[Rfam]
RNA sequence: UUGAACAUCGUUACCAGACAGUGUUAGAGUCAAGCUGGGAAAUCCAACACUGUCCGGUAAGAUGCUCAC
Number, nucleotide and partner (000 for none) at each position: 001u000002u068003g067004a066005a000006c064007a063008u062009c061010g000011u060012u059013a058014c057015c056016a000017g054018a053019c052020a051021g050022u049023g048024u047025u046026a000027g044028a043029g000030u000031c000032a000033a000034g000035c000036u000037g000038g000039g000040a000041a000042a000043u028044c027045c000046a025047a024048c023049a022050c021051u020052g019053u018054c017055c000056g015057g014058u013059a012060a011061g009062a008063u007064g006065c000066u004067c003068a002069c000
Background:
Shown here is a 69-nucleotide RNA sequence from Pan paniscus, a member of the family "mir-8/mir-141/mir-200 microRNA precursor family". The family is grouped with related families in Rfam's "mir-8 microRNA precursor clan". It scores 48 bits against the family's covariance model. The base pairs follow the family's consensus structure, which was predicted with RNAalifold.